The family of this 90-nucleotide sequence from Candidimonas sp. SYP-B2681 is "Glycine riboswitch aptamer".
On this family, see Babina et al., MBio 2017: "In Vivo Behavior of the Tandem Glycine Riboswitch in Bacillus subtilis".
Pairs were carried over by alignment from the consensus structure.
[Rfam]
RNA sequence: UUACACAGAGUGGGAGAGUGCCGUAAUUUCCGGCCACCGAAGGCGCAAUUCGCCCAGAAUCGCUCAGGUACCCUGUACCGCUCUUGUAUU
Numbered sequence: 001u002u003a004c005a006c007a008g009a010g011u012g013g014g015a016g017a018g019u020g021c022c023g024u025a026a027u028u029u030c031c032g033g034c035c036a037c038c039g040a041a042g043g044c045g046c047a048a049u050u051c052g053c054c055c056a057g058a059a060u061c062g063c064u065c066a067g068g069u070a071c072c073c074u075g076u077a078c079c080g081c082u083c084u085u086g087u088a089u090u
Stems, first nucleotide, its partner, number of pairs: 007084007020034004036069003039065002043063003049056001